[Rfam]
RNA sequence: CCCUCCGAAGUUUCCCUCAGGAUAGCUGGCACUCGAUUCGCAUGGUUUUAUCCGGUAAAGCGAAUGAUUAGAGGCAUUGGGGACGAAACGUCCUCAACCUAUUCUCAAACUUUAAAUGGGUAAGAGGCGCGACCCUUCCCUAUCGGGGUCGCGUGCUCGAACAGAGAGUGCCCAGUGGGCCGUUUUUGGUAAGCAGAACUGGCGCUGUGGGAUGAACCAAACGUGCGGUUAGGGUGCCUAACGCACGCUCAUGAGACACCACAAAAGGUGUUGGUUGAUAUAGACAGCAGGACGAUGGCCAUGGAAGUCGGAAUUCGCUAAGGAGUGUGUAACAACUCACCUGCCGAAUCAACUAGCCCUGAAAAUGGAUGGCGCUGGAGCGUGCGACCCAUACCGCACCGUCGGGGCAAUGCGUGCGUAAUGCCAGGCCCCGACGAGUAGGAGGGCGUGUCGGUGGCGUUGAAGCGUUGUGCGAGAGCACGCGUGGAGCCGCCUUCAGUGCAGAU
Numbered sequence: 001c002c003c004u005c006c007g008a009a010g011u012u013u014c015c016c017u018c019a020g021g022a023u024a025g026c027u028g029g030c031a032c033u034c035g036a037u038u039c040g041c042a043u044g045g046u047u048u049u050a051u052c053c054g055g056u057a058a059a060g061c062g063a064a065u066g067a068u069u070a071g072a073g074g075c076a077u078u079g080g081g082g083a084c085g086a087a088a089c090g091u092c093c094u095c096a097a098c099c100u101a102u103u104c105u106c107a108a109a110c111u112u113u114a115a116a117u118g119g120g121u122a123a124g125a126g127g128c129g130c131g132a133c134c135c136u137u138c139c140c141u142a143u144c145g146g147g148g149u150c151g152c153g154u155g156c157u158c159g160a161a162c163a164g165a166g167a168g169u170g171c172c173c174a175g176u177g178g179g180c181c182g183u184u185u186u187u188g189g190u191a192a193g194c195a196g197a198a199c200u201g202g203c204g205c206u207g208u209g210g211g212a213u214g215a216a217c218c219a220a221a222c223g224u225g226c227g228g229u230u231a232g233g234g235u236g237c238c239u240a241a242c243g244c245a246c247g248c249u250c251a252u253g254a255g256a257c258a259c260c261a262c263a264a265a266a267g268g269u270g271u272u273g274g275u276u277g278a279u280a281u282a283g284a285c286a287g288c289a290g291g292a293c294g295a296u297g298g299c300c301a302u303g304g305a306a307g308u309c310g311g312a313a314u315u316c317g318c319u320a321a322g323g324a325g326u327g328u329g330u331a332a333c334a335a336c337u338c339a340c341c342u343g344c345c346g347a348a349u350c351a352a353c354u355a356g357c358c359c360u361g362a363a364a365a366u367g368g369a370u371g372g373c374g375c376u377g378g379a380g381c382g383u384g385c386g387a388c389c390c391a392u393a394c395c396g397c398a399c400c401g402u403c404g405g406g407g408c409a410a411u412g413c414g415u416g417c418g419u420a421a422u423g424c425c426a427g428g429c430c431c432c433g434a435c436g437a438g439u440a441g442g443a444g445g446g447c448g449u450g451u452c453g454g455u456g457g458c459g460u461u462g463a464a465g466c467g468u469u470g471u472g473c474g475a476g477a478g479c480a481c482g483c484g485u486g487g488a489g490c491c492g493c494c495u496u497c498a499g500u501g502c503a504g505a506u
Stems, first nucleotide, its partner, number of pairs: 001446006011024001013022003028172006046125008058113001059111002065107003070102001072100003077097006084090001127154009179203004184198005208219003223399005229393001233389003242386002246382003266360003270357010287344005293317003299311002318322001323338001327336002400436009447501001449498002453494006465485002471480003